[Rfam]
RNA sequence: GAGAUAUGAUGAACAACAAUUUGGUCCGUGUUUCAGAUUAACCGUGACUAAGAAUUUCUUAACCAACCUCUGAUCUC
Dot-bracket structure: ((((.....................................................................))))
A member of the RNA family "Small nucleolar RNA SNORD18" from Microthlaspi erraticum, 77 nucleotides long. Clan: SNORD18 clan. Its family is annotated with RNA processing and nucleolus in the Gene Ontology. By type it is a C/D-box small nucleolar RNA. NCBI's taxonomy places the organism under Eukaryota, Viridiplantae, Tracheophyta, Coluteocarpeae, Microthlaspi.